Rfam assigns this 69-nucleotide sequence from Dissostichus mawsoni to the family "mir-24 microRNA precursor family".
RNA sequence: CCCUCUGGUGCCUUCUGAGCUGAGCGCAGUUAGAUCUCACACACUGGCUCAGUUCAGCAGGAACAGGAG
Number, nucleotide and partner (000 for none) at each position: 001c000002c000003c069004u068005c067006u066007g000008g064009u063010g000011c061012c060013u059014u000015c057016u056017g055018a054019g053020c052021u051022g050023a049024g000025c000026g000027c046028a045029g044030u043031u000032a000033g000034a000035u000036c000037u000038c000039a000040c000041a000042c000043a030044c029045u028046g027047g000048c000049u023050c022051a021052g020053u019054u018055c017056a016057g015058c000059a013060g012061g011062a000063a009064c008065a000066g006067g005068a004069g003
Overview
Rfam links the family to the GO terms RISC complex and miRNA-mediated post-transcriptional gene silencing. The family's consensus secondary structure was predicted with RNAalifold. This family represents the microRNA (miRNA) mir-24 family. miRNAs are transcribed as ~70nt precursors (modelled here) and subsequently processed by the Dicer enzyme to give a ~22nt product. In this case the mature sequence comes from the 3' arm of the precursor. The extents of the hairpin precursors are not generally known and are estimated based on hairpin prediction.